[Rfam]
Rfam assigns this 104-nucleotide RNA from Sporomusaceae bacterium FL31 to the family "SAM riboswitch aptamer (S box leader)". The match comes from Rfam's covariance-model search (92 bits).

Nucleotides: 104
Base pairs, nucleotide, nucleotide: 001104002103003102004101005100006099007098008097013041015040016039017038021031022030023029026078027077028076042071043070044069045068047067048066050062051061052060075096080093081092082091083090
Number, partner (000 for none) and nucleotide at each position: 001104c002103u003102c004101u005100u006099a007098u008097c009000c010000a011000g012000a013041g014000a015040g016039g017038u018000c019000g020000a021031g022030g023029g024000a025000c026078u027077g028076g029023c030022c031021c032000g033000a034000u035000g036000a037000c038017a039016c040015c041013c042071a043070g044069c045068a046000a047067c048066c049000g050062g051061c052060a053000u054000u055000u056000u057000u058000u059000a060052u061051g062050c063000a064000g065000u066048g067047g068045u069044g070043c071042u072000a073000a074000u075096u076028c077027c078026a079000c080093c081092a082091g083090g084000u085000a086000a087000a088000a089000u090083c091082c092081u093080g094000g095000a096075a097008g098007a099006u100005g101004a102003g103002a104001g